[Rfam]
RNA sequence: UCAUCACCAUCAUCACCCAGCCUAGUCUUUCGGGAGAUGAGCGCAUACCCGGGAGACAGGAAUCUUCCGGAGGUGAAAAUCGUCGAAUUCAGAUUUUAAACCCUCGGGAGACCAACAUCUUCCGAGGGUUUUUUAAU
Numbered sequence: 001u002c003a004u005c006a007c008c009a010u011c012a013u014c015a016c017c018c019a020g021c022c023u024a025g026u027c028u029u030u031c032g033g034g035a036g037a038u039g040a041g042c043g044c045a046u047a048c049c050c051g052g053g054a055g056a057c058a059g060g061a062a063u064c065u066u067c068c069g070g071a072g073g074u075g076a077a078a079a080u081c082g083u084c085g086a087a088u089u090c091a092g093a094u095u096u097u098a099a100a101c102c103c104u105c106g107g108g109a110g111a112c113c114a115a116c117a118u119c120u121u122c123c124g125a126g127g128g129u130u131u132u133u134u135a136a137u
Base pairs, nucleotide, nucleotide: 009046010045011039012038013037014036017034018033020031048070049069051068052067053066054065055064056063098131099130100129101128102127103126104125105124106123107122108121109120110119
The record is a 137-nucleotide RNA from Vibrio navarrensis, which matches "Histidine operon leader" in Rfam. The literature on the family includes a 1982 paper in Annu Rev Genet by Kolter and Yanofsky, "Attenuation in amino acid biosynthetic operons". A search with the family's covariance model found it, with a score of 87 bits. The family's consensus secondary structure is taken from published work. It is annotated as a cis-regulatory leader. NCBI's taxonomy places the organism under Bacteria, Pseudomonadota, Gammaproteobacteria, Vibrionales, Vibrio. At least 6 amino acid operons are known to be regulated by attenuation. In each a leader sequence of 150-200 bp is found upstream of the first gene in the operon. This leader sequence can assume two different secondary structures known as the terminator and the anti-terminator structure. In each case the leader also codes for very short peptide sequence that is rich in the end product amino acid of the operon.